[Rfam]
RNA: mir-132 microRNA precursor family
Organism: Hucho hucho
RNA sequence: GUGCAUCAAUACCUUGGCUCUAGACUGCUUACUGCUUAAAACUCAGUGAAACUACAGUAACAGUCUACAGUCAUGGCCACUGAUGUCUG
Numbered sequence: 001g002u003g004c005a006u007c008a009a010u011a012c013c014u015u016g017g018c019u020c021u022a023g024a025c026u027g028c029u030u031a032c033u034g035c036u037u038a039a040a041a042c043u044c045a046g047u048g049a050a051a052c053u054a055c056a057g058u059a060a061c062a063g064u065c066u067a068c069a070g071u072c073a074u075g076g077c078c079a080c081u082g083a084u085g086u087c088u089g
Base pairs, nucleotide, nucleotide: 012076013075015073016072017071018070023065024064025063026062027061029060030059031058032057033056